This 99-nucleotide sequence belongs to the Rfam family "PhotoRC-II RNA".
Rfam's curators put it in the seed alignment.
It is annotated as a cis-regulatory element.

RNA sequence: CUCCUGAGUACAACUGCUCUUAAACCGAGACCUAUAGGCAGUAUAAAACUUCGUCUCUCAUAUCCAGUAGUGAGGGAUUACUGGAAAUAAGUUAUCGCA
Numbered sequence: 001c002u003c004c005u006g007a008g009u010a011c012a013a014c015u016g017c018u019c020u021u022a023a024a025c026c027g028a029g030a031c032c033u034a035u036a037g038g039c040a041g042u043a044u045a046a047a048a049c050u051u052c053g054u055c056u057c058u059c060a061u062a063u064c065c066a067g068u069a070g071u072g073a074g075g076g077a078u079u080a081c082u083g084g085a086a087a088u089a090a091g092u093u094a095u096c097g098c099a
Stems, first nucleotide, its partner, number of pairs: 013042005019037002027057005063085007